[Rfam]
RNA sequence: GAGAAGAAGGAAACUAGACAAUCUUACAUAGCUCAAAAUAAUCUGUAAGCUCGUCUUAGUUUUCCUCUCCUC
Number, nucleotide and partner (000 for none) at each position: 001g000002a071003g070004a000005a068006g067007a066008a000009g064010g063011a062012a061013a060014c059015u058016a057017g000018a054019c053020a000021a051022u000023c049024u048025u047026a046027c045028a044029u000030a000031g000032c000033u000034c000035a000036a000037a000038a000039u000040a000041a000042u000043c000044u028045g027046u026047a025048a024049g023050c000051u021052c000053g019054u018055c000056u000057u016058a015059g014060u013061u012062u011063u010064c009065c000066u007067c006068u005069c000070c003071u002072c000